Overview:
Rfam assigns this 272-nucleotide sequence from Cotesia congregata to the family "RNase MRP". Rfam describes the family as follows. RNase MRP is an enzymatically active ribonucleoprotein with two distinct roles in eukaryotes. In mitochondria it plays a direct role in the initiation of mitochondrial DNA replication. In the nucleus it is involved in precursor rRNA processing, where it cleaves the internal transcribed spacer 1 between 18S and 5.8S rRNAs. By type it is a ribozyme. Pairs were carried over by alignment from the consensus structure, which is taken from published work. The source organism's lineage runs through Eukaryota, Allotriocarida, Hexapoda, Microgastrinae and Cotesia.

[Rfam]
RNA sequence: AUGUUUCUUCAAGCCGCACGGCGGAGCCACCAACAGGGUUUACAUAACUCAUAGUAGCUCUGAGGAAGGUCCCUGGAUCCCUGGCAGAAAGUGUCGUAGUUUAAGACUACUAGCCUCCACUGCUUCUCAAUACAAGAUGGGACGCUUAAUUCCUGGGAUUUGUUUCUCAGGUUGCUGAUCUUUGAGAUUGGUGUGAGUGUAUUGGUCAAAGUUAAAGUGAUGUGCGUUGAUCGAUUUAUCGACAACUCAACAGGGCCUACUGCGAAGAAACU
Numbered sequence: 001a002u003g004u005u006u007c008u009u010c011a012a013g014c015c016g017c018a019c020g021g022c023g024g025a026g027c028c029a030c031c032a033a034c035a036g037g038g039u040u041u042a043c044a045u046a047a048c049u050c051a052u053a054g055u056a057g058c059u060c061u062g063a064g065g066a067a068g069g070u071c072c073c074u075g076g077a078u079c080c081c082u083g084g085c086a087g088a089a090a091g092u093g094u095c096g097u098a099g100u101u102u103a104a105g106a107c108u109a110c111u112a113g114c115c116u117c118c119a120c121u122g123c124u125u126c127u128c129a130a131u132a133c134a135a136g137a138u139g140g141g142a143c144g145c146u147u148a149a150u151u152c153c154u155g156g157g158a159u160u161u162g163u164u165u166c167u168c169a170g171g172u173u174g175c176u177g178a179u180c181u182u183u184g185a186g187a188u189u190g191g192u193g194u195g196a197g198u199g200u201a202u203u204g205g206u207c208a209a210a211g212u213u214a215a216a217g218u219g220a221u222g223u224g225c226g227u228u229g230a231u232c233g234a235u236u237u238a239u240c241g242a243c244a245a246c247u248c249a250a251c252a253g254g255g256c257c258u259a260c261u262g263c264g265a266a267g268a269a270a271c272u
Base pairs, nucleotide, nucleotide: 003271004270005269006268007267008266009265010264015226016225017224018223019222022062023061024060025059026058027057036050037049038048039047040046067258068257069256071255072254073253074252083095084094085093086092096110097109098108099107100106101105113198114197121191125187126186127185128184129182130181132179232241233240234239